[Rfam]
RNA sequence: GAUGGUAUAAGAGAGCUUCCUUUAGUCCACUCAUAGGUAGACGAAGGAUUUGAAUUAUCUCCCGACUCAUUCAUUCAAACGCAAUAGGAAGUAUGUAAUCUUAUACUAUUGUGAAUGUGUGAAUGAUGCGGGAGAUAAAUUCUCUCCUUUUUAUCUGUGCUUGGACUGAAGGGAGCUCCCUUUUACCUUCUU
Numbered sequence: 001g002a003u004g005g006u007a008u009a010a011g012a013g014a015g016c017u018u019c020c021u022u023u024a025g026u027c028c029a030c031u032c033a034u035a036g037g038u039a040g041a042c043g044a045a046g047g048a049u050u051u052g053a054a055u056u057a058u059c060u061c062c063c064g065a066c067u068c069a070u071u072c073a074u075u076c077a078a079a080c081g082c083a084a085u086a087g088g089a090a091g092u093a094u095g096u097a098a099u100c101u102u103a104u105a106c107u108a109u110u111g112u113g114a115a116u117g118u119g120u121g122a123a124u125g126a127u128g129c130g131g132g133a134g135a136u137a138a139a140u141u142c143u144c145u146c147c148u149u150u151u152u153a154u155c156u157g158u159g160c161u162u163g164g165a166c167u168g169a170a171g172g173g174a175g176c177u178c179c180c181u182u183u184u185a186c187c188u189u190c191u192u
Stems, first nucleotide, its partner, number of pairs: 013178008023168007036155001059134002062131003068125004076117001
The family of this 192-nucleotide sequence from Solanum lycopersicum is "MIR159 microRNA precursor family". For this family Rfam cites "Novel and stress-regulated microRNAs and other small RNAs from Arabidopsis" (Sunkar and Zhu, Plant Cell, 2004). The organism belongs to Solanum subgen. Lycopersicon, within Eukaryota. Its family is annotated with miRNA-mediated post-transcriptional gene silencing and RISC complex in the Gene Ontology.